[Rfam]
RNA sequence: UGCGAUGAGUCGAGAGGUCUGGUAGCAACCCAAAUGGCUACCAUAAGACAUUUUGACAAGUGGGGUACGUUAACUCACCGGAUUGUGAGGUACCUGGUUCUGUUGGCCAUGUGGACAGU
Numbered sequence: 001u002g003c004g005a006u007g008a009g010u011c012g013a014g015a016g017g018u019c020u021g022g023u024a025g026c027a028a029c030c031c032a033a034a035u036g037g038c039u040a041c042c043a044u045a046a047g048a049c050a051u052u053u054u055g056a057c058a059a060g061u062g063g064g065g066u067a068c069g070u071u072a073a074c075u076c077a078c079c080g081g082a083u084u085g086u087g088a089g090g091u092a093c094c095u096g097g098u099u100c101u102g103u104u105g106g107c108c109a110u111g112u113g114g115a116c117a118g119u
Stems, first nucleotide, its partner, number of pairs: 017049004021042006064094005074089005106119002110115001
RNA: Enterococcus sRNA 68 (Lacto-3 RNA)